[Rfam]
RNA sequence: AAUACCCGGAGGGUGAAACCUCCUCCCUUCGCUCUCCGGGGUGACCAGCCAGCUCCUCCUCCCGCUGGCUUGUAACAGGAAAAGGCCGGCUCCUCCUCCCGCCGGCCUUUUCU
Numbered sequence: 001a002a003u004a005c006c007c008g009g010a011g012g013g014u015g016a017a018a019c020c021u022c023c024u025c026c027c028u029u030c031g032c033u034c035u036c037c038g039g040g041g042u043g044a045c046c047a048g049c050c051a052g053c054u055c056c057u058c059c060u061c062c063c064g065c066u067g068g069c070u071u072g073u074a075a076c077a078g079g080a081a082a083a084g085g086c087c088g089g090c091u092c093c094u095c096c097u098c099c100c101g102c103c104g105g106c107c108u109u110u111u112c113u
Stems, first nucleotide, its partner, number of pairs: 007038003011034007044073002047070006083108008
RNA: Alphaproteobacterial ar14
Organism: Mesorhizobium sp. ORS 3428